[Rfam]
Nucleotides: 182
Base pairs, nucleotide, nucleotide: 007176008175009174010173011172016080017079018078019077020076021075022074024072033064034063035062036061037060038059039058084113085112086111087110088109089108090107091106092105093104094103114140115139117137118136119135120134121133122132123131124130142167143166144165145164146163147162148161149160150159
Number, partner (000 for none) and nucleotide at each position: 001000c002000g003000a004000u005000g006000a007176g008175g009174u010173a011172g012000a013000g014000g015000a016080g017079c018078g019077g020076g021075a022074a023000u024072u025000a026000a027000g028000a029000g030000u031000a032000u033064g034063c035062a036061a037060a038059a039058g040000a041000a042000g043000g044000c045000u046000g047000a048000c049000a050000a051000c052000c053000g054000u055000u056000g057000a058039u059038u060037u061036u062035u063034g064033c065000u066000g067000a068000a069000a070000g071000g072024a073000u074022u075021u076020u077019u078018c079017g080016c081000c082000g083000a084113a085112g086111c087110a088109g089108g090107u091106a092105a093104a094103g095000c096000u097000g098000u099000c100000a101000a102000u103094c104093u105092u106091u107090a108089u109088c110087u111086g112085c113084u114140g115139g116000g117137g118136u119135u120134g121133c122132c123131u124130u125000g126000a127000a128000c129000a130124a131123g132122g133121g134120u135119a136118a137117c138000a139115c140114u141000g142167u143166c144165a145164u146163u147162a148161c149160a150159g151000a152000g153000a154000a155000a156000c157000u158000u159150c160149u161148g162147u163146a164145g165144u166143g167142g168000a169000g170000g171000g172011c173010u174009a175008c176007u177000g178000a179000u180000c181000g182000u

The family of this 182-nucleotide RNA sequence from Metabacillus lacus is "Lysine riboswitch aptamer". Its family is annotated with lysine biosynthetic process in the Gene Ontology.